The family of this 225-nucleotide RNA sequence from a Methylophilaceae bacterium is "HNH endonuclease-associated RNA and ORF (HEARO) RNA". Lineage of the source: Bacteria > Pseudomonadati > Betaproteobacteria > Nitrosomonadales > Methylophilaceae. The base pairs follow the family's consensus structure, which is taken from published work. A search with the family's covariance model found it, with a score of 103 bits.
RNA sequence: GUCAAUCACCCCAUUCAUUGGGAAUGAGGCAUGGUCCGUGAGGAGCAUGGGUAACAGGUUGACAAGGAGGCAUUGAAAGAUGCAGAAGUUAGGAGAAAGAAAUACAUACACACCUACGGAUAUUCCGCACGUUCGUAGCAACUGUGAUCUGUCAUUAAACAGAGAGGAAACUCUCAGUGUGCCGGAUUUAAAAACGUCUUCUAACAACUCCGAUGCGGCUCUAAC
Numbered sequence: 001g002u003c004a005a006u007c008a009c010c011c012c013a014u015u016c017a018u019u020g021g022g023a024a025u026g027a028g029g030c031a032u033g034g035u036c037c038g039u040g041a042g043g044a045g046c047a048u049g050g051g052u053a054a055c056a057g058g059u060u061g062a063c064a065a066g067g068a069g070g071c072a073u074u075g076a077a078a079g080a081u082g083c084a085g086a087a088g089u090u091a092g093g094a095g096a097a098a099g100a101a102a103u104a105c106a107u108a109c110a111c112a113c114c115u116a117c118g119g120a121u122a123u124u125c126c127g128c129a130c131g132u133u134c135g136u137a138g139c140a141a142c143u144g145u146g147a148u149c150u151g152u153c154a155u156u157a158a159a160c161a162g163a164g165a166g167g168a169a170a171c172u173c174u175c176a177g178u179g180u181g182c183c184g185g186a187u188u189u190a191a192a193a194a195c196g197u198c199u200u201c202u203a204a205c206a207a208c209u210c211c212g213a214u215g216c217g218g219c220u221c222u223a224a225c
Stems, first nucleotide, its partner, number of pairs: 001063007010029002012026002015022002030049004066211004073082001088205009110145002114138008125218005147187005153181003159178002162175005